The family of this 96-nucleotide RNA sequence from Marinobacterium stanieri is "Glycine riboswitch aptamer". Taxonomically the source falls in Marinobacterium (Bacteria, Pseudomonadati, Pseudomonadota, Oceanospirillales).

[Rfam]
RNA sequence: GACUCGUCUACUGGAGAGAGGUCGCAAGACCCACCGAAGGGGCAACGCGCACGGAUGAGCGCGCAAACUCUCAGGUAACCGGACAGAGGGAGGGAC
Number, nucleotide and partner (000 for none) at each position: 001g000002a000003c000004u000005c000006g000007u090008c089009u088010a000011c086012u085013g084014g000015a000016g000017a000018g000019a000020g031021g030022u029023c028024g000025c000026a000027a000028g023029a022030c021031c020032c000033a076034c075035c074036g072037a071038a000039g000040g070041g069042g068043c000044a000045a000046c063047g062048c061049g060050c059051a000052c000053g000054g000055a000056u000057g000058a000059g050060c049061g048062c047063g046064c000065a000066a000067a000068c042069u041070c040071u037072c036073a000074g035075g034076u033077a000078a000079c000080c000081g000082g000083a000084c013085a012086g011087a000088g009089g008090g007091a000092g000093g000094g000095a000096c000